Small nucleolar RNA SNORA25: a 123-nucleotide RNA from Myotis myotis. The base pairs follow the family's consensus structure, which was predicted with RNAfold. It scores 98 bits against the family's covariance model. Rfam describes the family as follows. ACA25 is a member of the H/ACA class of snoRNA that guide the sites of modification of uridines to pseudouridines. Gene Ontology terms of the family: RNA processing and nucleolus. Taxonomically the source falls in Myotis (Eukaryota, Chordata, Theria, Eutheria). The family's RNA type in Rfam is H/ACA-box small nucleolar RNA.
RNA sequence: AGGUCAUUUCAGAGAGAGCUUAGGAGACCAAAACCAGGAGCUCUUGACACUGUGACCUACGAUUUAAGUUCUCCAUAGGAUGUAACAGACAAUAGUGCUAUGUUCUCCUGAGGAGAUGUAAGA
Numbered sequence: 001a002g003g004u005c006a007u008u009u010c011a012g013a014g015a016g017a018g019c020u021u022a023g024g025a026g027a028c029c030a031a032a033a034c035c036a037g038g039a040g041c042u043c044u045u046g047a048c049a050c051u052g053u054g055a056c057c058u059a060c061g062a063u064u065u066a067a068g069u070u071c072u073c074c075a076u077a078g079g080a081u082g083u084a085a086c087a088g089a090c091a092a093u094a095g096u097g098c099u100a101u102g103u104u105c106u107c108c109u110g111a112g113g114a115g116a117u118g119u120a121a122g123a
Base pairs, nucleotide, nucleotide: 002057003056004055005054006053007052014045015044016043017042018041019040020039021038026035070116071115072114073113074112077109078108079107080106085101087099088098090097091096